M-box riboswitch aptamer (ykoK leader): a 174-nucleotide RNA sequence from Mycobacterium dioxanotrophicus. From the family's description: M-box riboswitch, also know as ykoK leader is described as a metaloregulatory RNA that sense divalent metals and function as a genetic control element of genes related to divalent metal transport in bacteria. It was first reported upstream of the B.subtilis ykoK gene and genes with related functions in other bacteria. The organism belongs to Mycobacterium, within Bacteria. A search with the family's covariance model found it, with a score of 142 bits.
[Rfam]
RNA sequence: CAAGCACCUCGUUGGGCGAGGCGUCUGCAUGGACACAGGCCACUGACCCCGAACGUCGAGAGACGCCCCCGGUCAGGACAGCUCCUCCCGGCUUAAGGGUUGAGCCCAAGUGGCUUUCGGAUUCCGAUCCGAAUACGCCGUGCAGUGCCGAAGCUGUGACGAGAGGGGUGCAUC
Numbered sequence: 001c002a003a004g005c006a007c008c009u010c011g012u013u014g015g016g017c018g019a020g021g022c023g024u025c026u027g028c029a030u031g032g033a034c035a036c037a038g039g040c041c042a043c044u045g046a047c048c049c050c051g052a053a054c055g056u057c058g059a060g061a062g063a064c065g066c067c068c069c070c071g072g073u074c075a076g077g078a079c080a081g082c083u084c085c086u087c088c089c090g091g092c093u094u095a096a097g098g099g100u101u102g103a104g105c106c107c108a109a110g111u112g113g114c115u116u117u118c119g120g121a122u123u124c125c126g127a128u129c130c131g132a133a134u135a136c137g138c139c140g141u142g143c144a145g146u147g148c149c150g151a152a153g154c155u156g157u158g159a160c161g162a163g164a165g166g167g168g169u170g171c172a173u174c
Stems, first nucleotide, its partner, number of pairs: 005170006011160002013096001015155003020149003025145008039114005045074004054065004081105004087099003116133005